Annotation: Rfam assigns this 128-nucleotide RNA sequence from Formicarius rufipectus to the family "Small nucleolar RNA SNORA17". The family's RNA type in Rfam is H/ACA-box small nucleolar RNA. The organism belongs to Formicarius, within Eukaryota. On this family, see Ofengand and Bakin, J Mol Biol 1997: "Mapping to nucleotide resolution of pseudouridine residues in large subunit ribosomal RNAs from representative eukaryotes, prokaryotes, archaebacteria, mitochondria and chloroplasts".
[Rfam]
RNA sequence: UCUGCCCCAGCUCGUGUUGCAGGGGUGGCUACAGUGCCACGUUUGUGUCAUUAGGUGGCAGAGAGGAUAAGUCAAGGUCUUUCCCUGGUGCUCUGACCCACGUGGGCUCCCAGGAUCGCUCAACAACC
Numbered sequence: 001u002c003u004g005c006c007c008c009a010g011c012u013c014g015u016g017u018u019g020c021a022g023g024g025g026u027g028g029c030u031a032c033a034g035u036g037c038c039a040c041g042u043u044u045g046u047g048u049c050a051u052u053a054g055g056u057g058g059c060a061g062a063g064a065g066g067a068u069a070a071g072u073c074a075a076g077g078u079c080u081u082u083c084c085c086u087g088g089u090g091c092u093c094u095g096a097c098c099c100a101c102g103u104g105g106g107c108u109c110c111c112a113g114g115a116u117c118g119c120u121c122a123a124c125a126a127c128c
Stems, first nucleotide, its partner, number of pairs: 002061005007055002010052001014048002019046004025040005068125001071124002075120002081115003087111002090107004